The family of this 203-nucleotide sequence from Theileria equi is "ACEA small nucleolar RNA U3".
NCBI's taxonomy places the organism under Eukaryota, Alveolata, Aconoidasida, Theileriidae, Theileria equi.
Pairs were carried over by alignment from the consensus structure, which is taken from published work.
By type it is a C/D-box small nucleolar RNA.
A reference for the family is Zwieb (1997), "The uRNA database", Nucleic Acids Res.
Rfam describes the family as follows. Small nucleolar RNAs (snoRNAs) are involved in the processing and modification of rRNA in the nucleolus. There are two main classes of snoRNAs: the box C/D class, and the box H/ACA class. U3 snoRNA is a member of the box C/D class.
[Rfam]
Nucleotides: 203
Base pairs, nucleotide, nucleotide: 001041002040003039006035008034009033010032011031017028018027019026020025047071048070049069052066053065054064055063077201078200079199080198095190096189097188098187099186100183101182102181103180104179108156109155118145119144121140162174163173164172165171
Number, partner (000 for none) and nucleotide at each position: 001041u002040c003039g004000a005000c006035u007000g008034u009033g010032c011031u012000c013000g014000u015000a016000c017028a018027g019026g020025a021000u022000c023000a024000c025020u026019u027018c028017u029000a030000u031011a032010g033009u034008g035006a036000a037000u038000c039003c040002g041001a042000c043000u044000a045000u046000c047071g048070a049069u050000a051000a052066c053065a054064u055063c056000a057000g058000c059000g060000a061000c062000a063055g064054g065053u066052g067000c068000c069049g070048u071047c072000a073000a074000c075000a076000a077201c078200c079199g080198u081000g082000a083000u084000g085000a086000u087000g088000a089000g090000u091000u092000u093000u094000a095190c096189g097188c098187u099186c100183u101182g102181c103180c104179g105000c106000u107000u108156a109155c110000g111000g112000a113000a114000u115000u116000a117000a118145g119144u120000u121140a122000u123000c124000a125000a126000a127000u128000g129000u130000c131000u132000a133000u134000c135000a136000u137000u138000u139000g140121u141000u142000u143000g144119a145118c146000g147000u148000c149000g150000a151000u152000g153000a154000a155109g156108u157000u158000u159000g160000u161000a162174a163173a164172c165171c166000u167000a168000u169000u170000a171165g172164g173163u174162u175000u176000c177000u178000a179104c180103g181102g182101c183100a184000u185000u186099g187098a188097g189096c190095g191000a192000a193000u194000c195000u196000g197000a198080a199079c200078g201077g202000c203000u